About this RNA:
A member of the RNA family "Bacteroidete tryptophan peptide leader RNA" from Aquimarina muelleri, 125 nucleotides long. The base pairs follow the family's consensus structure, which is taken from published work. Rfam links the family to the GO terms S-adenosylmethionine metabolic process and regulation of gene expression.
RNA sequence: UUGGAGCAACAAUAGAAAAAUGAAAAUAAUCUUAACAAAAAAUUGGUGGUGGUCAUCUCAAAGCGAAAACGUCGUGAGAUAGCCCCUUCAAUUAUGUUAAGUAGAAAACAUAUCAAAGGCUUGUC
Numbered sequence: 001u002u003g004g005a006g007c008a009a010c011a012a013u014a015g016a017a018a019a020a021u022g023a024a025a026a027u028a029a030u031c032u033u034a035a036c037a038a039a040a041a042a043u044u045g046g047u048g049g050u051g052g053u054c055a056u057c058u059c060a061a062a063g064c065g066a067a068a069a070c071g072u073c074g075u076g077a078g079a080u081a082g083c084c085c086c087u088u089c090a091a092u093u094a095u096g097u098u099a100a101g102u103a104g105a106a107a108a109c110a111u112a113u114c115a116a117a118g119g120c121u122u123g124u125c
Base pairs, nucleotide, nucleotide: 035097036096037095041093042092043091044090045089046088048086049085051083055080056079058077059076060075063072064071065070